[Rfam]
RNA sequence: AAAGUAUAGCUUCACCAGUAUUUUUGGCUGUUUAUAUGCUUUCAAAUAAAUCACAUGUAAACUGGUCUCUCUAAGCUGGGAGAAUAAAUCCAAGUGAACAAACUUAAGUUCUGCUAACUGAUUUCAGGAGGUUUCUUUUAUCCCCCCUUUCAUAUAUCUUUGAAAAGGAGAUAAGUAUAUAUGUCACUUUCUGCAGAUAUCAAUUGGCUCUAAUGUUGUUCAUAAAUAU
Numbered sequence: 001a002a003a004g005u006a007u008a009g010c011u012u013c014a015c016c017a018g019u020a021u022u023u024u025u026g027g028c029u030g031u032u033u034a035u036a037u038g039c040u041u042u043c044a045a046a047u048a049a050a051u052c053a054c055a056u057g058u059a060a061a062c063u064g065g066u067c068u069c070u071c072u073a074a075g076c077u078g079g080g081a082g083a084a085u086a087a088a089u090c091c092a093a094g095u096g097a098a099c100a101a102a103c104u105u106a107a108g109u110u111c112u113g114c115u116a117a118c119u120g121a122u123u124u125c126a127g128g129a130g131g132u133u134u135c136u137u138u139u140a141u142c143c144c145c146c147c148u149u150u151c152a153u154a155u156a157u158c159u160u161u162g163a164a165a166a167g168g169a170g171a172u173a174a175g176u177a178u179a180u181a182u183g184u185c186a187c188u189u190u191c192u193g194c195a196g197a198u199a200u201c202a203a204u205u206g207g208c209u210c211u212a213a214u215g216u217u218g219u220u221c222a223u224a225a226a227u228a229u
Base pairs, nucleotide, nucleotide: 015079016078017077018076019075027066028065029064030062031061032060033059034058035057036056037055038054095222096221097220098219099218102216103215113208114207115206116205117204119202120201121200122199
RNA: Small nucleolar RNA snR161